[Rfam]
The record is a 140-nucleotide RNA sequence from Peromyscus maniculatus, which matches "small Cajal body-specific RNA 17" in Rfam. Taxonomically the source falls in Peromyscus maniculatus (Eukaryota, Tetrapoda, Myomorpha, Neotominae). The family has 6 seed sequences and 262 matches in Rfam 15.1. Gene Ontology terms of the family: Cajal body, RNA processing and nucleolus. Pairs were carried over by alignment from the consensus structure, which is taken from published work. By type it is a small Cajal body RNA. From the family's description: scaRNAs are a specific class of small nuclear RNAs which localise to the Cajal bodies and guide the modification of RNA polymerase II transcribed spliceosomal RNAs U1, U2, U4, U5 and U12. The complete human U12-22/U4-8 scaRNA is composed of two tandem C/D box domains (termed U12-22 and U4-8).
RNA sequence: CGCCUGGGUCCCCGACCCAGCCCCGAGUGAGCCCGAGGUAUUUUCCUUAUAUGAUCAGGCCUCACGCGGCCGGCGCUGCUGGUCUGGAGCCUGAGAGGAUUAUGAAAACGUGGCAGGUGAUGGGGCCGGGGGACCUGGCA
Numbered sequence: 001c002g003c004c005u006g007g008g009u010c011c012c013c014g015a016c017c018c019a020g021c022c023c024c025g026a027g028u029g030a031g032c033c034c035g036a037g038g039u040a041u042u043u044u045c046c047u048u049a050u051a052u053g054a055u056c057a058g059g060c061c062u063c064a065c066g067c068g069g070c071c072g073g074c075g076c077u078g079c080u081g082g083u084c085u086g087g088a089g090c091c092u093g094a095g096a097g098g099a100u101u102a103u104g105a106a107a108a109c110g111u112g113g114c115a116g117g118u119g120a121u122g123g124g125g126c127c128g129g130g131g132g133a134c135c136u137g138g139c140a
Base pairs, nucleotide, nucleotide: 002139003138005137006136007135008134009133010132011131012130013129020126021125022124023123024122055094056093057092058091059090060089061087062086066083067082069080071078072077